[Rfam]
RNA sequence: GUGUUGAAGUAAUCGCUCUGGUUAACAGAGAGGAAAGUCCAUGCUCACACAAGCUGAGAUGCUUGUAGUGUUCGUGCUUGACGAAGUCAUAAGUCAAGGUAGCCUUCGUUGGCUAACGGCAGGGAAAGAACCUAAGUCUUUUGAUAUGGUUCGAUUACCUUUAAUGUGCCACAGAGACGAAAUUGACUCGGAAACGAUCAAUGUGGAACGCGGUAAACCCCACGAGUGAGCAACCCAAAAUAAGGUAGGGGCACUUUCUGCAAGAAAAUGAACUGUGCAGAAGGACAAGCUAUUGCUUGUAGAUAGAUGAUUACUACUGGCGUACGAGGUUGACCACCGUUUGUAGUACUAAAGUACAGAACAUGGCUUACCAAA
Numbered sequence: 001g002u003g004u005u006g007a008a009g010u011a012a013u014c015g016c017u018c019u020g021g022u023u024a025a026c027a028g029a030g031a032g033g034a035a036a037g038u039c040c041a042u043g044c045u046c047a048c049a050c051a052a053g054c055u056g057a058g059a060u061g062c063u064u065g066u067a068g069u070g071u072u073c074g075u076g077c078u079u080g081a082c083g084a085a086g087u088c089a090u091a092a093g094u095c096a097a098g099g100u101a102g103c104c105u106u107c108g109u110u111g112g113c114u115a116a117c118g119g120c121a122g123g124g125a126a127a128g129a130a131c132c133u134a135a136g137u138c139u140u141u142u143g144a145u146a147u148g149g150u151u152c153g154a155u156u157a158c159c160u161u162u163a164a165u166g167u168g169c170c171a172c173a174g175a176g177a178c179g180a181a182a183u184u185g186a187c188u189c190g191g192a193a194a195c196g197a198u199c200a201a202u203g204u205g206g207a208a209c210g211c212g213g214u215a216a217a218c219c220c221c222a223c224g225a226g227u228g229a230g231c232a233a234c235c236c237a238a239a240a241u242a243a244g245g246u247a248g249g250g251g252c253a254c255u256u257u258c259u260g261c262a263a264g265a266a267a268a269u270g271a272a273c274u275g276u277g278c279a280g281a282a283g284g285a286c287a288a289g290c291u292a293u294u295g296c297u298u299g300u301a302g303a304u305a306g307a308u309g310a311u312u313a314c315u316a317c318u319g320g321c322g323u324a325c326g327a328g329g330u331u332g333a334c335c336a337c338c339g340u341u342u343g344u345a346g347u348a349c350u351a352a353a354g355u356a357c358a359g360a361a362c363a364u365g366g367c368u369u370a371c372c373a374a375a
Stems, first nucleotide, its partner, number of pairs: 004375002008315007016030005035369003039366005044230005049066006072225005077098006099117001100115005118220002121160003129151004136145003166218002168214003182202005188197003234250003254284007285300006317354002322349004
RNA: Bacterial RNase P class B
Organism: Halalkalibacillus sediminis